[Rfam]
RNA sequence: AAGCGAGGACGACCUCCCCCCAUCGUGGGCAUGACAUACCGGGACGGCCCGG
Number, nucleotide and partner (000 for none) at each position: 001a000002a000003g018004c000005g016006a015007g014008g013009a000010c000011g000012a000013c008014c007015u006016c005017c000018c003019c000020c000021c000022a000023u000024c000025g000026u000027g000028g000029g000030c000031a000032u000033g000034a000035c000036a000037u000038a000039c052040c051041g050042g049043g048044a000045c000046g000047g000048c043049c042050c041051g040052g039

Background:
The record is a 52-nucleotide RNA sequence from Limimaricola hongkongensis, which matches "Guanidine-II riboswitch aptamer (mini-ykkC)" in Rfam. The base pairs follow the family's consensus structure, which is taken from published work. A search with the family's covariance model found it, with a score of 36 bits. For this family Rfam cites "The Structure of the Guanidine-II Riboswitch" (Huang et al., Cell Chem Biol, 2017).